[Rfam]
RNA: SAH (S-adenosyl-L-homocysteine) riboswitch aptamer
Nucleotides: 081
Base pairs, nucleotide, nucleotide: 003046004045005044006043007042008041021034022033023032024031025030
Number, partner (000 for none) and nucleotide at each position: 001000c002000a003046g004045g005044c006043u007042g008041a009000g010000g011000g012000g013000c014000g015000c016000u017000g018000c019000a020000a021034c022033g023032g024031a025030g026000u027000u028000u029000a030025u031024u032023c033022c034021g035000c036000u037000a038000c039000g040000c041008u042007c043006a044005g045004c046003c047000a048000g049000g050000u051000g052000c053000c054000a055000a056000u057000u058000a059000a060000u061000u062000u063000g064000c065000a066000a067000g068000g069000g070000c071000g072000c073000c074000c075000a076000u077000u078000c079000a080000c081000c